The family of this 175-nucleotide RNA from Sphingobium sp. SYK-6 is "Manganese Mn2+ riboswitch aptamer (yybP-ykoY)". This RNA was originally discovered in E. coli during a large scale screen and was named SraF. The family was later found to exist upstream of related families of protein genes in many bacteria, including the the yybP and ykoK genes in B. subtilis. The match comes from Rfam's covariance-model search (48 bits).
RNA sequence: GCUUGCGUCACUUGGGGAGUAGCCAGCCGCCGGUUCGGCGGGCCCGCGCGUCAACAUACUUGGCCGAGAGGUCAUGGCGGCGGGGGACGGAGGUCCAGGCGAGACCAAUGACGUUGCGCUUUCGUCCGGGCCGGGCGGGAGGUGCGAUGUCAUUCGGUAUGAUCGCCCUGGCCCU
Numbered sequence: 001g002c003u004u005g006c007g008u009c010a011c012u013u014g015g016g017g018a019g020u021a022g023c024c025a026g027c028c029g030c031c032g033g034u035u036c037g038g039c040g041g042g043c044c045c046g047c048g049c050g051u052c053a054a055c056a057u058a059c060u061u062g063g064c065c066g067a068g069a070g071g072u073c074a075u076g077g078c079g080g081c082g083g084g085g086g087a088c089g090g091a092g093g094u095c096c097a098g099g100c101g102a103g104a105c106c107a108a109u110g111a112c113g114u115u116g117c118g119c120u121u122u123c124g125u126c127c128g129g130g131c132c133g134g135g136c137g138g139g140a141g142g143u144g145c146g147a148u149g150u151c152a153u154u155c156g157g158u159a160u161g162a163u164c165g166c167c168c169u170g171g172c173c174c175u
Stems, first nucleotide, its partner, number of pairs: 027041003043084005049079005061074005

NCBI's taxonomy places the organism under Bacteria, Pseudomonadati, Pseudomonadota, Alphaproteobacteria, Sphingobium. The pairing is the family consensus, mapped onto this sequence.